[Rfam]
RNA sequence: UUUCCCAUUUGACUACCACAUUUUCUCCUAAUAGAUUUUAGUGGCUAUGCUUAUGGGAUAGAUUAAAGGUGCCAUGAUCUGAAGAGGGAGGAUUUUUUCAUUGUCCUCCUUCUAUAUGAAAUGGCUGAACAGAAAAUC
Numbered sequence: 001u002u003u004c005c006c007a008u009u010u011g012a013c014u015a016c017c018a019c020a021u022u023u024u025c026u027c028c029u030a031a032u033a034g035a036u037u038u039u040a041g042u043g044g045c046u047a048u049g050c051u052u053a054u055g056g057g058a059u060a061g062a063u064u065a066a067a068g069g070u071g072c073c074a075u076g077a078u079c080u081g082a083a084g085a086g087g088g089a090g091g092a093u094u095u096u097u098u099c100a101u102u103g104u105c106c107u108c109c110u111u112c113u114a115u116a117u118g119a120a121a122u123g124g125c126u127g128a129a130c131a132g133a134a135a136a137u138c
Base pairs, nucleotide, nucleotide: 004057005056006055007054016044017043018042019041071125072124073123074122089113090112091111092110

This 138-nucleotide RNA sequence from Castor canadensis belongs to the Rfam family "Small nucleolar RNA SNORA29". On this family, see Huttenhofer et al., EMBO J 2001: "RNomics: an experimental approach that identifies 201 candidates for novel, small, non-messenger RNAs in mouse". ACA29 is a member of the H/ACA class of snoRNA that guide the sites of modification of uridines to pseudouridines. The family is grouped with related families in Rfam's "SNORA20 clan". The base pairs follow the family's consensus structure, which was predicted with PFOLD. A search with the family's covariance model found it, with a score of 157 bits.